Notes: This 183-nucleotide sequence from Oryza glumipatula belongs to the Rfam family "MIR812 microRNA precursor family". Its family is annotated with miRNA-mediated post-transcriptional gene silencing and RISC complex in the Gene Ontology. The match comes from Rfam's covariance-model search (83 bits). Rfam 15.1 lists 57,451 matches to the family in 24 species.
[Rfam]
RNA sequence: AAUAAGUGCAGUCGUAAGUAUCUGUGUCCAACGUUUCACUAUCCGUCUUAUUUAAAAAAAAUAUGAUAAAAUUAAAAAAAUCAGUCACACAUAAAAUAUUAUUCAUGCUUUUUUAUCUAAUAAAAAAUAUUAAUCAUAAUUUCUUUUAAAUAAAACGAAUAGUUAAACGUUGGAUAUGAAUUG
Numbered sequence: 001a002a003u004a005a006g007u008g009c010a011g012u013c014g015u016a017a018g019u020a021u022c023u024g025u026g027u028c029c030a031a032c033g034u035u036u037c038a039c040u041a042u043c044c045g046u047c048u049u050a051u052u053u054a055a056a057a058a059a060a061a062u063a064u065g066a067u068a069a070a071a072u073u074a075a076a077a078a079a080a081u082c083a084g085u086c087a088c089a090c091a092u093a094a095a096a097u098a099u100u101a102u103u104c105a106u107g108c109u110u111u112u113u114u115a116u117c118u119a120a121u122a123a124a125a126a127a128u129a130u131u132a133a134u135c136a137u138a139a140u141u142u143c144u145u146u147u148a149a150a151u152a153a154a155a156c157g158a159a160u161a162g163u164u165a166a167a168c169g170u171u172g173g174a175u176a177u178g179a180a181u182u183g
Stems, first nucleotide, its partner, number of pairs: 027174006034167003038163005044157003048153004
Background: The family's consensus secondary structure was predicted with RNAalifold. Taxonomically the source falls in Oryza (Eukaryota, Viridiplantae, Streptophyta, Euphyllophyta).